[Rfam]
RNA: small nucleolar RNA snR95
Nucleotides: 213
Base pairs, nucleotide, nucleotide: 009134010133011132012131013130014129015128022124023123024120027117028116030114031111032110033109034108036107038105040103042101043100044099047094050091051089052088054085056083057082063076064075065074066073153207154206155205156204157203158202159201164197166195168194169193171191172190173189174188175187176186177185
Number, partner (000 for none) and nucleotide at each position: 001000a002000u003000c004000a005000a006000c007000c008000a009134c010133c011132a012131u013130g014129c015128u016000c017000a018000c019000u020000u021000u022124c023123u024120u025000a026000u027117g028116a029000a030114u031111a032110g033109a034108u035000g036107c037000a038105a039000a040103a041000a042101u043100c044099g045000a046000g047094u048000g049000c050091u051089g052088c053000u054085u055000u056083a057082g058000u059000a060000a061000a062000a063076u064075g065074c066073g067000u068000c069000u070000a071000u072000u073066u074065g075064u076063a077000g078000g079000a080000a081000c082057c083056u084000u085054g086000u087000u088052g089051c090000a091050a092000a093000a094047a095000a096000c097000g098000g099044c100043g101042a102000a103040u104000g105038u106000c107036g108034g109033u110032c111031u112000g113000u114030a115000c116028u117027u118000u119000u120024g121000u122000u123023g124022g125000u126000u127000g128015g129014g130013c131012g132011u133010g134009g135000c136000a137000g138000a139000a140000a141000g142000g143000c144000c145000u146000u147000u148000a149000g150000g151000c152000a153207g154206c155205a156204g157203c158202u159201c160000g161000a162000a163000g164197c165000a166195g167000c168194u169193g170000g171191u172190u173189u174188u175187g176186u177185c178000g179000g180000a181000g182000a183000a184000c185177g186176a187175c188174a189173a190172g191171a192000u193169c194168a195166u196000c197164g198000a199000u200000a201159g202158a203157g204156c205155u206154g207153u208000a209000c210000a211000u212000u213000u